RNA sequence: ACGAUGUUCCGCUGUCAGAAAAAAUUGUUAAGAGCAUUGG
Numbered sequence: 001a002c003g004a005u006g007u008u009c010c011g012c013u014g015u016c017a018g019a020a021a022a023a024a025u026u027g028u029u030a031a032g033a034g035c036a037u038u039g040g
Base pairs, nucleotide, nucleotide: 003038004037005036006035007034008033009032013030014029016027017026018025

The record is a 40-nucleotide RNA sequence from Paraliobacillus ryukyuensis, which matches "Ribosomal protein L19 leader" in Rfam. Rfam's curators write: This family is a putative r-protein leader autoregulatory structure found in B. subtilis and other low-GC Gram-positive bacteria. It is located in the 5' untranslated regions of mRNAs encoding ribosomal protein L19 (rplS).